[Rfam]
RNA: mir-631 microRNA precursor family
Organism: Bos taurus
RNA sequence: GGGGAGCCCAGUUAGACCUGGCUUAGACCUCAGCUUCACAAGCUGAUAGACUGAGUCAGGGGGCCAAAGCUCUCC
Numbered sequence: 001g002g003g004g005a006g007c008c009c010a011g012u013u014a015g016a017c018c019u020g021g022c023u024u025a026g027a028c029c030u031c032a033g034c035u036u037c038a039c040a041a042g043c044u045g046a047u048a049g050a051c052u053g054a055g056u057c058a059g060g061g062g063g064c065c066a067a068a069g070c071u072c073u074c075c
Base pairs, nucleotide, nucleotide: 001075002074003073004072005071006070012062013061017060018059019058020057021056022055024053025052026051028049030046031045032044033043034042035041